[Rfam]
RNA sequence: CAGCACUAAACGGGGUGGUAGCGGUACCCUGUCACCCGCAAUCCGCUAUAGCGGGGUUGAAUUCCCAGAUUGAGACUUGAUAAUUUGUUGAUAUGCGCUUAAAAAGUGGUGUUGACAGGAUGGUCUCAUGCAACAAGAAUCUAUGAACCAUGUCAGGUCCGGAAGGAAGCAGCAUUAAGUAGUCCCUCUUGUGUGCCGUGAGGUAGCCUUUCUCGAGCUAACUAGUCUGAAAGCAGCAGCGGGUUUUAAGCCGAUACUGGGUGUGCAU
Dot-bracket structure: ..((((..(((((((((.(...).))))))....(((((...........)))))))).....(((((.....(.(((...(((((((((...((...(((.(..(((((......((((.(((((((((((.(((((..((((.....((((....(((....)))....))))...))))....)))))))...))))))...))).))))...))).))...).)))...)).)))))))))..))).)....))))).))))..
Rfam assigns this 268-nucleotide sequence from Helcococcus ovis to the family "Bacterial large signal recognition particle RNA". The source organism's lineage runs through Bacteria, Bacillota, Tissierellales, Peptoniphilaceae and Helcococcus. Rfam classes the family as a non-coding RNA gene. It scores 183 bits against the family's covariance model. Pairs were carried over by alignment from the consensus structure, which is taken from published work.